[Rfam]
RNA: Small nucleolar RNA SNORD58
RNA sequence: UUGCCAUGAUGACAGUCUUAGGACACCUUUGGAAUAACCAUGAAAAAAACCUGUAUUCUGAGCAAC
Numbered sequence: 001u002u003g004c005c006a007u008g009a010u011g012a013c014a015g016u017c018u019u020a021g022g023a024c025a026c027c028u029u030u031g032g033a034a035u036a037a038c039c040a041u042g043a044a045a046a047a048a049a050c051c052u053g054u055a056u057u058c059u060g061a062g063c064a065a066c
Stems, first nucleotide, its partner, number of pairs: 001065004